[Rfam]
RNA sequence: AUGCAUCUAUUUGACAGGCCUGAAGCAGUUACUGUUUGCUAAGCUUUCCACUACAGAGUCAAGAAAAAAGUGUCCUCAUGCUUUCUUUCUGUCUGAUUGUGGCAGCCCAGAUUGAAUGGGGGAAUACAGGG
Numbered sequence: 001a002u003g004c005a006u007c008u009a010u011u012u013g014a015c016a017g018g019c020c021u022g023a024a025g026c027a028g029u030u031a032c033u034g035u036u037u038g039c040u041a042a043g044c045u046u047u048c049c050a051c052u053a054c055a056g057a058g059u060c061a062a063g064a065a066a067a068a069a070g071u072g073u074c075c076u077c078a079u080g081c082u083u084u085c086u087u088u089c090u091g092u093c094u095g096a097u098u099g100u101g102g103c104a105g106c107c108c109a110g111a112u113u114g115a116a117u118g119g120g121g122g123a124a125u126a127c128a129g130g131g
Stems, first nucleotide, its partner, number of pairs: 002061002006057003012050002016046004023037006073123005081114001084111003089105005